Shown here is a 109-nucleotide RNA sequence from Sorghum bicolor, a member of the family "MIR5565 microRNA precursor family". The base pairs follow the family's consensus structure, which was predicted with RNAalifold. It scores 125 bits against the family's covariance model.
[Rfam]
RNA sequence: GUAGUCGGAUUCACAUCAAUCCACAUGUGUUGGAGUGGAUUGGGGUGGAAUUUAGUUCAAAUUCCACUCCAACCCACACCAACACAUGUGGAUUGAGGUGAAUCCGACU
Numbered sequence: 001g002u003a004g005u006c007g008g009a010u011u012c013a014c015a016u017c018a019a020u021c022c023a024c025a026u027g028u029g030u031u032g033g034a035g036u037g038g039a040u041u042g043g044g045g046u047g048g049a050a051u052u053u054a055g056u057u058c059a060a061a062u063u064c065c066a067c068u069c070c071a072a073c074c075c076a077c078a079c080c081a082a083c084a085c086a087u088g089u090g091g092a093u094u095g096a097g098g099u100g101a102a103u104c105c106g107a108c109u
Stems, first nucleotide, its partner, number of pairs: 004108011016096017035077004040072004045067003